Archaeal large subunit ribosomal RNA: a 254-nucleotide part of an RNA from Thermoplasmatales archaeon A-plasma. It is one of the family's seed sequences. Pairs were carried over by alignment from the consensus structure, which is taken from published work. The literature on the family includes a 2001 paper in Science by Yusupov et al., "Crystal structure of the ribosome at 5.5 A resolution".
RNA sequence: GAGUUUCGACGAAUGGCGAGGUUAAUCUUUUAAAGAGAAGCCGUAGCGAAAGCGAGUAUCCGCACAGCAAUGGAGGGAUAGCGUAAUCUAUGCGUUAGUCAUUCGUGGAAGACCCGAAGCCGGUCGAUCUACGCCUGAGCAGGUUGAAGCCCAGUGAAAACUGGGUGGAGGACCGAACCAGUUCUGAUGUGCAAAUCGUUUGGAUGACUUGGGUGUAGGGGUUAAAGGCCAAUCUAGGCCGGCAAUAGCGGGUU
Numbered sequence: 001g002a003g004u005u006u007c008g009a010c011g012a013a014u015g016g017c018g019a020g021g022u023u024a025a026u027c028u029u030u031u032a033a034a035g036a037g038a039a040g041c042c043g044u045a046g047c048g049a050a051a052g053c054g055a056g057u058a059u060c061c062g063c064a065c066a067g068c069a070a071u072g073g074a075g076g077g078a079u080a081g082c083g084u085a086a087u088c089u090a091u092g093c094g095u096u097a098g099u100c101a102u103u104c105g106u107g108g109a110a111g112a113c114c115c116g117a118a119g120c121c122g123g124u125c126g127a128u129c130u131a132c133g134c135c136u137g138a139g140c141a142g143g144u145u146g147a148a149g150c151c152c153a154g155u156g157a158a159a160a161c162u163g164g165g166u167g168g169a170g171g172a173c174c175g176a177a178c179c180a181g182u183u184c185u186g187a188u189g190u191g192c193a194a195a196u197c198g199u200u201u202g203g204a205u206g207a208c209u210u211g212g213g214u215g216u217a218g219g220g221g222u223u224a225a226a227g228g229c230c231a232a233u234c235u236a237g238g239c240c241g242g243c244a245a246u247a248g249c250g251g252g253u254u
Stems, first nucleotide, its partner, number of pairs: 005110003009106009020042004026036004046053002058079004065072002082094004113252002116249001120242006129218011140206001142174004149166007178203004184198001186197002220230003